Shown here is an 83-nucleotide sequence from Halalkalibacter nanhaiisediminis, a member of the family "c-di-GMP-I riboswitch aptamer".
NCBI's taxonomy places the organism under Bacteria, Bacillota, Bacilli, Caryophanales, Halalkalibacter.
The match comes from Rfam's covariance-model search (74 bits).
RNA sequence: GAUAGAAAACGGCAAACUUAUUGAAAAGUAAGGACGCAAAGCUAUAGGGACUAACGGGAAACCCAUGUCAGCCAGUUGCCUGU
Numbered sequence: 001g002a003u004a005g006a007a008a009a010c011g012g013c014a015a016a017c018u019u020a021u022u023g024a025a026a027a028g029u030a031a032g033g034a035c036g037c038a039a040a041g042c043u044a045u046a047g048g049g050a051c052u053a054a055c056g057g058g059a060a061a062c063c064c065a066u067g068u069c070a071g072c073c074a075g076u077u078g079c080c081u082g083u
Base pairs, nucleotide, nucleotide: 012037013036017032018031019030020029021028022027040077041076042075043074047073048072049069050068051067056063057062